mir-166 microRNA precursor family: a 198-nucleotide RNA from Chenopodium quinoa. The organism belongs to Chenopodium, within Eukaryota. From the family's description: This family represents the plant microRNA (miRNA) precursor mir-166. Rfam 15.1 lists 2,599 matches to the family in 229 species. A reference for the family is Reinhart et al. (2002), "MicroRNAs in plants", Genes Dev. Its family is annotated with RISC complex and miRNA-mediated post-transcriptional gene silencing in the Gene Ontology.
[Rfam]
RNA sequence: GUUGAGGGGUAUGUUGUCUGGUUCGAGAUCAUGGAGGUUGAUGAAUUUUAUUAUUUUUUUCUUCUGAUUCUUUUAGAUUUUUGCAAAUUAUGUAUUGGUUUUUUUCCAUAUGUAAUUAGCAUAAAAUUAAAAAGGAGGAAAAUAUAUAUAAAAGAAAAACCCUACAUGAUUCUCGGACCAGGCUUCAUUCCUCCUAAC
Numbered sequence: 001g002u003u004g005a006g007g008g009g010u011a012u013g014u015u016g017u018c019u020g021g022u023u024c025g026a027g028a029u030c031a032u033g034g035a036g037g038u039u040g041a042u043g044a045a046u047u048u049u050a051u052u053a054u055u056u057u058u059u060u061c062u063u064c065u066g067a068u069u070c071u072u073u074u075a076g077a078u079u080u081u082u083g084c085a086a087a088u089u090a091u092g093u094a095u096u097g098g099u100u101u102u103u104u105u106c107c108a109u110a111u112g113u114a115a116u117u118a119g120c121a122u123a124a125a126a127u128u129a130a131a132a133a134g135g136a137g138g139a140a141a142a143u144a145u146a147u148a149u150a151a152a153a154g155a156a157a158a159a160c161c162c163u164a165c166a167u168g169a170u171u172c173u174c175g176g177a178c179c180a181g182g183c184u185u186c187a188u189u190c191c192u193c194c195u196a197a198c
Stems, first nucleotide, its partner, number of pairs: 001198004006193004011188003016183006024175005